[Rfam]
RNA sequence: CGAGUAAGCCAGACAAUCGCUGCUGACGACAGUCAGGAGAGGAAAGUCCGAGCUCCGCAGGGCAGGGUGCUGGAUAACGUCCAGUCGAGGCGACCCGAAGGAAAGUGCAACAGAGAUAUACCGCCAGAAUUCUUUUUAAGAAUGAGUAUGAUAUUUAUAUCAUCUGGUAAGGGUGGAAAGGCGAGGUAAGAGCUCACCAGCGUGAUGGCGACUUCACGGCUCUGUAAACCCCACCUGGAGCAAGAUCGAAUAGAGAGGCAUUAUGGGAUUGCCCGUCCCGCCUCUGGGUGUAUCGCUGGAGCCCAUCGGCAACGAUGGGCCUAGAUAGAUGAUUGUCAAAUACAGAACUCGGCUUAUAGACUUAUCUCGCACA
Numbered sequence: 001c002g003a004g005u006a007a008g009c010c011a012g013a014c015a016a017u018c019g020c021u022g023c024u025g026a027c028g029a030c031a032g033u034c035a036g037g038a039g040a041g042g043a044a045a046g047u048c049c050g051a052g053c054u055c056c057g058c059a060g061g062g063c064a065g066g067g068u069g070c071u072g073g074a075u076a077a078c079g080u081c082c083a084g085u086c087g088a089g090g091c092g093a094c095c096c097g098a099a100g101g102a103a104a105g106u107g108c109a110a111c112a113g114a115g116a117u118a119u120a121c122c123g124c125c126a127g128a129a130u131u132c133u134u135u136u137u138a139a140g141a142a143u144g145a146g147u148a149u150g151a152u153a154u155u156u157a158u159a160u161c162a163u164c165u166g167g168u169a170a171g172g173g174u175g176g177a178a179a180g181g182c183g184a185g186g187u188a189a190g191a192g193c194u195c196a197c198c199a200g201c202g203u204g205a206u207g208g209c210g211a212c213u214u215c216a217c218g219g220c221u222c223u224g225u226a227a228a229c230c231c232c233a234c235c236u237g238g239a240g241c242a243a244g245a246u247c248g249a250a251u252a253g254a255g256a257g258g259c260a261u262u263a264u265g266g267g268a269u270u271g272c273c274c275g276u277c278c279c280g281c282c283u284c285u286g287g288g289u290g291u292a293u294c295g296c297u298g299g300a301g302c303c304c305a306u307c308g309g310c311a312a313c314g315a316u317g318g319g320c321c322u323a324g325a326u327a328g329a330u331g332a333u334u335g336u337c338a339a340a341u342a343c344a345g346a347a348c349u350c351g352g353c354u355u356a357u358a359g360a361c362u363u364a365u366c367u368c369g370c371a372c373a
Stems, first nucleotide, its partner, number of pairs: 001369004005364004010359001011357001012337007020039002023036005044355003048352005053240004060274004065236005070084005085099001086097002089094001100231002105229002107225003121172002123168006180198002183195003200220001201218005207212001244294003254285006265279005301320008
Bacterial RNase P class A: a 373-nucleotide sequence from Clostridium fungisolvens.
Lineage of the source: Bacteria > Bacillati > Bacillota > Eubacteriales > Clostridium.
Pairs were carried over by alignment from the consensus structure, which is taken from published work.
Rfam links the family to the GO terms ribonuclease P activity, tRNA processing and dimeric ribonuclease P complex.
By type it is a ribozyme.